[Rfam]
RNA: MIR2617 microRNA precursor family
Organism: Medicago truncatula
RNA sequence: AUGUAGUGUGACAUGCCCGUUGGGUUGUUACUCUGAUGAAUUAUUUAUUAUUUAAUUGAUUUUGGGAACGGGGUGUUACAAUACU
Numbered sequence: 001a002u003g004u005a006g007u008g009u010g011a012c013a014u015g016c017c018c019g020u021u022g023g024g025u026u027g028u029u030a031c032u033c034u035g036a037u038g039a040a041u042u043a044u045u046u047a048u049u050a051u052u053u054a055a056u057u058g059a060u061u062u063u064g065g066g067a068a069c070g071g072g073g074u075g076u077u078a079c080a081a082u083a084c085u
Stems, first nucleotide, its partner, number of pairs: 003084003007080008016072006